[Rfam]
RNA sequence: ACACGAGGAAGGAGGUGGUCUGAAGUUGAAGAACUACAGGACGCGUGAGGUGGCUGUCAGCUAGCCGCUACCGCUGACGGUGGGGUUCCAUCAACCGCGCAUCGCGGCUGGCGAAUCCCAGGCAGCUACCCGGCCCCCGAGUCCCCGGUCGAGUCCGAUCGGGAUCCGUGCGACAAACGUCCGCGCACGGGUACGGCUCGGGGGCCGUUCUGC
Numbered sequence: 001a002c003a004c005g006a007g008g009a010a011g012g013a014g015g016u017g018g019u020c021u022g023a024a025g026u027u028g029a030a031g032a033a034c035u036a037c038a039g040g041a042c043g044c045g046u047g048a049g050g051u052g053g054c055u056g057u058c059a060g061c062u063a064g065c066c067g068c069u070a071c072c073g074c075u076g077a078c079g080g081u082g083g084g085g086u087u088c089c090a091u092c093a094a095c096c097g098c099g100c101a102u103c104g105c106g107g108c109u110g111g112c113g114a115a116u117c118c119c120a121g122g123c124a125g126c127u128a129c130c131c132g133g134c135c136c137c138c139g140a141g142u143c144c145c146c147g148g149u150c151g152a153g154u155c156c157g158a159u160c161g162g163g164a165u166c167c168g169u170g171c172g173a174c175a176a177a178c179g180u181c182c183g184c185g186c187a188c189g190g191g192u193a194c195g196g197c198u199c200g201g202g203g204g205c206c207g208u209u210c211u212g213c
Base pairs, nucleotide, nucleotide: 014058015057016056017055018054019053060112061111062110063109064108065107067105068104070102072099073098074097131207132206133205134204135203136202137201138200139199140198141197142196143195144163145162146161147160148159149158

A member of the RNA family "Actinobacteria sRNA Ms_IGR-5" from Rhodococcus maanshanensis, 213 nucleotides long. It scores 133 bits against the family's covariance model. The pairing is the family consensus, mapped onto this sequence. By type it is a small RNA. The source organism's lineage runs through Bacteria, Bacillati, Actinomycetota, Nocardiaceae and Rhodococcus.